[Rfam]
RNA: miR-430 microRNA precursor family
Organism: Cyprinus carpio
RNA sequence: AUGUCUACUCUAACUCUAGCAUCUUUCUAUUCAAUCAAAGCAGAAAGUGCUAUCAAGUUGGGGUAAAUGUU
Number, nucleotide and partner (000 for none) at each position: 001a000002u000003g000004u067005c000006u065007a064008c063009u062010c061011u060012a000013a058014c057015u055016c000017u000018a051019g050020c049021a048022u000023c047024u046025u000026u044027c043028u042029a000030u000031u000032c000033a000034a000035u000036c000037a000038a000039a000040g000041c000042a028043g027044a026045a000046a024047g023048u021049g020050c019051u018052a000053u000054c000055a015056a000057g014058u013059u000060g011061g010062g009063g008064u007065a006066a000067a004068u000069g000070u000071u000